This 153-nucleotide RNA sequence belongs to the Rfam family "Bacterial antisense RNA HPnc0260". The match comes from Rfam's covariance-model search (70 bits). Pairs were carried over by alignment from the consensus structure, which was predicted with CMfinder.
RNA sequence: UAAAAAAUAAUUUUACUUUAAUUUUUAGUAUUUGAAAUAUGAAAAAUAGAAUUUAAAUUUAAUGUUUUAUAGAUUUGAACUAAAUGUUAUCUUGUGAUUUUAUUUUGAUGAAGAUGGUGGCCACGAGAGGACUUGAACCUCCGACCACUACCA
Number, nucleotide and partner (000 for none) at each position: 001u000002a000003a000004a000005a000006a000007a000008u000009a000010a000011u000012u000013u000014u000015a000016c000017u000018u000019u000020a000021a000022u045023u044024u043025u000026u039027a038028g000029u036030a000031u000032u000033u000034g000035a000036a029037a000038u027039a026040u000041g000042a000043a024044a023045a022046a000047u000048a000049g000050a000051a000052u000053u000054u000055a000056a000057a000058u000059u000060u000061a000062a000063u000064g000065u000066u000067u000068u000069a000070u000071a000072g000073a000074u000075u000076u000077g000078a000079a000080c000081u000082a000083a000084a000085u000086g000087u000088u000089a000090u000091c000092u000093u000094g000095u000096g000097a000098u000099u000100u000101u000102a000103u000104u000105u000106u000107g000108a000109u000110g000111a000112a000113g000114a000115u150116g149117g148118u147119g146120g145121c000122c000123a000124c143125g142126a000127g141128a140129g139130g138131a000132c000133u000134u000135g000136a000137a000138c130139c129140u128141c127142c125143g124144a000145c120146c119147a118148c117149u116150a115151c000152c000153a000